[Rfam]
RNA sequence: CCUCGGUUGUCCAUAUCCGGGGUUAAACAAAGAGGCACACCCUCAUUGCCGGCAGUGCGGAACGGGACACUCCCAUCCAAGCCAAGGCAGACAAAGCGAGCUUGAGCCGGGCGGCUCUCUGCUCAUCGCCGUGUGAUACGUUGUUCUGGU
Dot-bracket structure: ((((((.(......).))))))...........((((.........))))......(((......................(.......).........((((.....))))..............))).....................
Numbered sequence: 001c002c003u004c005g006g007u008u009g010u011c012c013a014u015a016u017c018c019g020g021g022g023u024u025a026a027a028c029a030a031a032g033a034g035g036c037a038c039a040c041c042c043u044c045a046u047u048g049c050c051g052g053c054a055g056u057g058c059g060g061a062a063c064g065g066g067a068c069a070c071u072c073c074c075a076u077c078c079a080a081g082c083c084a085a086g087g088c089a090g091a092c093a094a095a096g097c098g099a100g101c102u103u104g105a106g107c108c109g110g111g112c113g114g115c116u117c118u119c120u121g122c123u124c125a126u127c128g129c130c131g132u133g134u135g136a137u138a139c140g141u142u143g144u145u146c147u148g149g150u
Stems, first nucleotide, its partner, number of pairs: 001022006008015001034050004057129003082090001100112004

Shown here is a 150-nucleotide RNA sequence from Tianweitania populi, a member of the family "speF leader". About the family: This family is a putative regulatory RNA structure that is found upstream of the speF gene encoding ornithine decarboxylase in Agrobacterium tumefaciens and other alpha-proteobacteria. The base pairs follow the family's consensus structure, which was predicted with RNAalifold. It is annotated as a cis-regulatory leader.